[Rfam]
RNA sequence: GGGCCAGCUUAGCCUAGCGGUUACUUCGACUCUACAUUUGUCAGACUCUCUAAUUGCUUAACGGCAGUUUGAUACCCCGCAGGCGCUGUCUGGUCUUUUU
Numbered sequence: 001g002g003g004c005c006a007g008c009u010u011a012g013c014c015u016a017g018c019g020g021u022u023a024c025u026u027c028g029a030c031u032c033u034a035c036a037u038u039u040g041u042c043a044g045a046c047u048c049u050c051u052a053a054u055u056g057c058u059u060a061a062c063g064g065c066a067g068u069u070u071g072a073u074a075c076c077c078c079g080c081a082g083g084c085g086c087u088g089u090c091u092g093g094u095c096u097u098u099u100u
Stems, first nucleotide, its partner, number of pairs: 002095006012084004017080004026072004